The record is an 83-nucleotide sequence from Salinibacillus xinjiangensis, which matches "c-di-GMP-I riboswitch aptamer" in Rfam.
[Rfam]
RNA sequence: AUCUGAAAAAGGCAAAUCUACUGAAAGGUAGAGACGCAAAGUCACAGACCUACGGUGAACACUAUGGUGGCUGGACUGCUGAA
Dot-bracket structure: ...........((...((((((....))))))...))..((((.((((((....((....))...)))..)))))))......

Background: A search with the family's covariance model found it, with a score of 78 bits. NCBI's taxonomy places the organism under Bacteria, Bacillati, Bacillota, Bacillaceae, Salinibacillus.